Shown here is a 159-nucleotide RNA sequence from Trichinella nelsoni, a member of the family "U1 spliceosomal RNA". Rfam classes the family as a spliceosomal small nuclear RNA. The source organism's lineage runs through Eukaryota, Bilateria, Ecdysozoa, Trichinellida and Trichinella. The family's consensus secondary structure is taken from published work.

RNA sequence: AUACUUACCUGGCAGAUCAUCAACAAUGAUCAAGAAGAUUGUUGAUGCAGGAGGAGACUUGUGCAUUGCACUUGGCACUUGUUGAACCCUGGGAUCAUUUCAGUUUGAAAUGUAUUCUCUGCAUAGUUUUUGAGUUAGGGAGGCGUUCGCGCCCCCUUC
Dot-bracket structure: ...........((((..((((((((((..........)))))))))).(((....(((..((((..........))))..)))....))).((((((.((.......)).)).).)))))))..............((((.((((....))))))))..
Numbered sequence: 001a002u003a004c005u006u007a008c009c010u011g012g013c014a015g016a017u018c019a020u021c022a023a024c025a026a027u028g029a030u031c032a033a034g035a036a037g038a039u040u041g042u043u044g045a046u047g048c049a050g051g052a053g054g055a056g057a058c059u060u061g062u063g064c065a066u067u068g069c070a071c072u073u074g075g076c077a078c079u080u081g082u083u084g085a086a087c088c089c090u091g092g093g094a095u096c097a098u099u100u101c102a103g104u105u106u107g108a109a110a111u112g113u114a115u116u117c118u119c120u121g122c123a124u125a126g127u128u129u130u131u132g133a134g135u136u137a138g139g140g141a142g143g144c145g146u147u148c149g150c151g152c153c154c155c156c157u158u159c
Stems, first nucleotide, its partner, number of pairs: 012122004018047010049090003056083003061078004092118003095114001096112002099109002137157004142153004